[Rfam]
RNA: mir-737 microRNA precursor family
Organism: Lepisosteus oculatus
RNA sequence: UAGUUUUUUUAGGUUUUGAUUUUUAUUGAAUUCAGAUGAGAAAACCAAAACCUAAAGAAAAUA
Dot-bracket structure: ...(((((((((((((((.(((((...............))))).)))))))))))))))...
Numbered sequence: 001u002a003g004u005u006u007u008u009u010u011a012g013g014u015u016u017u018g019a020u021u022u023u024u025a026u027u028g029a030a031u032u033c034a035g036a037u038g039a040g041a042a043a044a045c046c047a048a049a050a051c052c053u054a055a056a057g058a059a060a061a062u063a
Stems, first nucleotide, its partner, number of pairs: 004060015020044005